[Rfam]
RNA sequence: UUUACUAUGUAAACAAUCAACGUAUGGAUUGGUUUUCAUAUAAGAAAACCAAUCCAUACGUUGAUUGUCUACAUAGUAAAA
Number, nucleotide and partner (000 for none) at each position: 001u081002u080003u079004a077005c076006u075007a074008u073009g000010u000011a000012a000013a000014c067015a066016a065017u064018c063019a062020a061021c060022g059023u000024a057025u056026g055027g054028a053029u052030u051031g000032g049033u048034u047035u046036u000037c000038a000039u000040a000041u000042a000043a000044g000045a000046a035047a034048a033049c032050c000051a030052a029053u028054c027055c026056a025057u024058a000059c022060g021061u020062u019063g018064a017065u016066u015067g014068u000069c000070u000071a000072c000073a008074u007075a006076g005077u004078a000079a003080a002081a001
RNA: mir-181 microRNA precursor family